[Rfam]
RNA sequence: CCAGGUUAAACUGAGCAGGCGAUGGACUUUAAAAGUUCGUGGGGCCGGGCCGGAAACGGCAGCAGAUGAUAAAUAUCUGUGGGACAGUA
Numbered sequence: 001c002c003a004g005g006u007u008a009a010a011c012u013g014a015g016c017a018g019g020c021g022a023u024g025g026a027c028u029u030u031a032a033a034a035g036u037u038c039g040u041g042g043g044g045c046c047g048g049g050c051c052g053g054a055a056a057c058g059g060c061a062g063c064a065g066a067u068g069a070u071a072a073a074u075a076u077c078u079g080u081g082g083g084a085c086a087g088u089a
Stems, first nucleotide, its partner, number of pairs: 010088004016083001018046003022040006049060004062080006
The family of this 89-nucleotide RNA from Syntrophobotulus glycolicus is "NiCo (Nickel/Cobalt) riboswitch aptamer". The organism belongs to Syntrophobotulus glycolicus, within Bacteria. On this family, see Furukawa et al., Mol Cell 2015: "Bacterial riboswitches cooperatively bind Ni(2+) or Co(2+) ions and control expression of heavy metal transporters". The family is grouped with related families in Rfam's "NiCo_riboswitches". Pairs were carried over by alignment from the consensus structure, which is taken from published work.